Rfam assigns this 98-nucleotide RNA from Vibrio maritimus to the family "Purine riboswitch aptamer". The family has 133 seed sequences and 4,097 matches in Rfam 15.1. The organism belongs to Vibrio, within Bacteria. The family's consensus secondary structure is taken from published work. It scores 54 bits against the family's covariance model.

RNA sequence: GGGACUUACUGUCAGGCAUUUUGUAUAAGCUUCAAAUAUGGUGAAGCGUUUCUACAGAGCACCAAUAAUGCUCCGCUAUAAAAUGACUCGAAUCUACA
Numbered sequence: 001g002g003g004a005c006u007u008a009c010u011g012u013c014a015g016g017c018a019u020u021u022u023g024u025a026u027a028a029g030c031u032u033c034a035a036a037u038a039u040g041g042u043g044a045a046g047c048g049u050u051u052c053u054a055c056a057g058a059g060c061a062c063c064a065a066u067a068a069u070g071c072u073c074c075g076c077u078a079u080a081a082a083a084u085g086a087c088u089c090g091a092a093u094c095u096a097c098a
Stems, first nucleotide, its partner, number of pairs: 018084008029047006057073005